[Rfam]
RNA sequence: GGUCCUAUGGUCUAGUGGUUAGGACAUUGGACUCUGAAUCCAGUAACCCGAGUUAAGUCUCGGUAGGAUCU
Numbered sequence: 001g002g003u004c005c006u007a008u009g010g011u012c013u014a015g016u017g018g019u020u021a022g023g024a025c026a027u028u029g030g031a032c033u034c035u036g037a038a039u040c041c042a043g044u045a046a047c048c049c050g051a052g053u054u055a056a057g058u059c060u061c062g063g064u065a066g067g068a069u070c071u
Base pairs, nucleotide, nucleotide: 001070002069003068004067005066006065007064010025011024012023013022027043028042029041030040031039048063049062050061051060052059
A member of the RNA family "tRNA" from Zostera marina, 71 nucleotides long. NCBI's taxonomy places the organism under Eukaryota, Streptophytina, Magnoliopsida, Zosteraceae, Zostera. It is annotated as a transfer RNA. Its family is annotated with triplet codon-amino acid adaptor activity in the Gene Ontology.